The record is a 108-nucleotide RNA from Tenebrionibacter intestinalis, which matches "ArcZ RNA" in Rfam. Gene Ontology terms of the family: regulation of translation and protein binding. The family's consensus secondary structure was predicted with PFOLD. The family's RNA type in Rfam is small RNA. Rfam describes the family as follows. This RNA was discovered in E. coli during a large scale screen. SraH expression is highly abundant in stationary phase, but low levels could be detected in exponentially growing cells as well.

[Rfam]
RNA sequence: AAGACGCCUCUUUCGUUUAAGCGCCGCCACAACCCACAACACAAUCUGAACAGGCGGCGUAAUGAUUUCCCUGGUGUUGGCGCAGUAUUCGCGCACCCCGGCCUGGCC
Number, nucleotide and partner (000 for none) at each position: 001a000002a000003g000004a000005c000006g000007c000008c000009u000010c000011u000012u000013u000014c000015g000016u000017u000018u000019a000020a000021g060022c059023g058024c057025c056026g055027c054028c053029a000030c000031a000032a000033c000034c000035c000036a000037c000038a000039a000040c000041a000042c000043a000044a000045u000046c000047u000048g000049a000050a000051c000052a000053g028054g027055c026056g025057g024058c023059g022060u021061a000062a000063u000064g000065a000066u000067u000068u000069c000070c000071c000072u000073g097074g096075u095076g000077u000078u000079g000080g094081c093082g092083c091084a000085g000086u000087a000088u000089u000090c000091g083092c082093g081094c080095a075096c074097c073098c000099c000100g000101g000102c000103c000104u000105g000106g000107c000108c000